[Rfam]
RNA: mir-16 microRNA precursor family
RNA sequence: UGGCGGGUUUACCCGCCAAUAAAUACUGGCGGGAAUAACCGCCAGUAUUUACUGGCGGGUCUACCCGCCA
Numbered sequence: 001u002g003g004c005g006g007g008u009u010u011a012c013c014c015g016c017c018a019a020u021a022a023a024u025a026c027u028g029g030c031g032g033g034a035a036u037a038a039c040c041g042c043c044a045g046u047a048u049u050u051a052c053u054g055g056c057g058g059g060u061c062u063a064c065c066c067g068c069c070a
Stems, first nucleotide, its partner, number of pairs: 001070003005066003010063001011060007020051001022049008